[Rfam]
RNA sequence: AUUCUGAGUUUGCCGAAACUUCCCAAGUCAUGAGAAGUGCGGGGGAUGACCGAUGGUGUAAGGCUUAUGCUAGCCACCUGGGGUGAAUCACACAUAAAUGCUGCGUAGGGUUGUAUCCUCAAUCCGAACCCGACAACUAACCUCGUAGGUAAAAAAAAGGAGCGAU
Numbered sequence: 001a002u003u004c005u006g007a008g009u010u011u012g013c014c015g016a017a018a019c020u021u022c023c024c025a026a027g028u029c030a031u032g033a034g035a036a037g038u039g040c041g042g043g044g045g046a047u048g049a050c051c052g053a054u055g056g057u058g059u060a061a062g063g064c065u066u067a068u069g070c071u072a073g074c075c076a077c078c079u080g081g082g083g084u085g086a087a088u089c090a091c092a093c094a095u096a097a098a099u100g101c102u103g104c105g106u107a108g109g110g111u112u113g114u115a116u117c118c119u120c121a122a123u124c125c126g127a128a129c130c131c132g133a134c135a136a137c138u139a140a141c142c143u144c145g146u147a148g149g150u151a152a153a154a155a156a157a158a159g160g161a162g163c164g165a166u
Base pairs, nucleotide, nucleotide: 011151012150013149014148018038019037020036021035022034039146040145041144042143043142044141051080052079081131082130083129089105091103092102108125109124110123111122

A member of the RNA family "c-di-AMP riboswitch aptamer (ydaO/yuaA leader)" from Brevibacillus laterosporus, 166 nucleotides long. The match comes from Rfam's covariance-model search (74 bits). Rfam links the family to the GO terms regulation of gene expression and cyclic-di-AMP binding.